[Rfam]
RNA sequence: UACCUGUAACGGGUCUCCGUCGGAAGGUGCAUCGCCAUCCCUCCCUUUCAUUUCUGGAAUAGCCUUAGCCGAGAGCCCAGUUCGAGUCCGAUGGUGUCCAGUUCCACUCAAGUAGGUAACUCUUGAUGCUGGGCGGACCUAAGCAAUGAAUACUACUGUUGAGGGAAGCAAUUCUGCAGACGCGUAUUCACCAUUGGGCGGCGGCGCUGGAAUACUCUUGCUGGGGUUGGAAUGUGGGGGAGGGGCUGGUGUAUCGACCGAUUUU
Numbered sequence: 001u002a003c004c005u006g007u008a009a010c011g012g013g014u015c016u017c018c019g020u021c022g023g024a025a026g027g028u029g030c031a032u033c034g035c036c037a038u039c040c041c042u043c044c045c046u047u048u049c050a051u052u053u054c055u056g057g058a059a060u061a062g063c064c065u066u067a068g069c070c071g072a073g074a075g076c077c078c079a080g081u082u083c084g085a086g087u088c089c090g091a092u093g094g095u096g097u098c099c100a101g102u103u104c105c106a107c108u109c110a111a112g113u114a115g116g117u118a119a120c121u122c123u124u125g126a127u128g129c130u131g132g133g134c135g136g137a138c139c140u141a142a143g144c145a146a147u148g149a150a151u152a153c154u155a156c157u158g159u160u161g162a163g164g165g166a167a168g169c170a171a172u173u174c175u176g177c178a179g180a181c182g183c184g185u186a187u188u189c190a191c192c193a194u195u196g197g198g199c200g201g202c203g204g205c206g207c208u209g210g211a212a213u214a215c216u217c218u219u220g221c222u223g224g225g226g227u228u229g230g231a232a233u234g235u236g237g238g239g240g241a242g243g244g245g246c247u248g249g250u251g252u253a254u255c256g257a258c259c260g261a262u263u264u265u
Base pairs, nucleotide, nucleotide: 002014003013004012019262020261021260022259023258026255027254028253029252030251034250035249036248037247039245040244041243042241043240044239045238046237047236049234050233051232052231053230054229063226064225065224067222068221070220071219072218073217074216075215077210078209079208080207081206082204083203084202086199087198088197089196090195091194092193093192094191097137098136099135101134102133103132104131105128106127108126109125110124111123112122114121115120139143147190148189149188150187151186152185153184157182158181159180160179165174166173167172
Dot-bracket structure: .(((.......)))....(((((..(((((...((((.(((((((((.((((((........(((.((.((((((.((((((((.(((((((((..(((.((((((.(((((.((....)))))))))..))))))).(...)...(((((((...((((....(((....)))....)))).))))))))))))))))..))).)))))....)))))))).)))..)))))).)))))).))).)))))))))..)))))...
Record summary: The record is a 265-nucleotide RNA sequence from Lojkania enalia, which matches "Fungal signal recognition particle RNA" in Rfam. The base pairs follow the family's consensus structure, which is taken from published work. A reference for the family is Batey et al. (2001), "Structural and energetic analysis of RNA recognition by a universally conserved protein from the signal recognition particle", J Mol Biol.